[Rfam]
RNA: Fluoride riboswitch aptamer (crcB RNA motif)
Organism: Clostridium homopropionicum
RNA sequence: AACUAAAUAGGUGAUGAAGUUCGCCAUAAUCAUCCUCAUGGAUUAAUGACUUCUACAAUAAG
Numbered sequence: 001a002a003c004u005a006a007a008u009a010g011g012u013g014a015u016g017a018a019g020u021u022c023g024c025c026a027u028a029a030u031c032a033u034c035c036u037c038a039u040g041g042a043u044u045a046a047u048g049a050c051u052u053c054u055a056c057a058a059u060a061a062g
Stems, first nucleotide, its partner, number of pairs: 010025004016053006032043004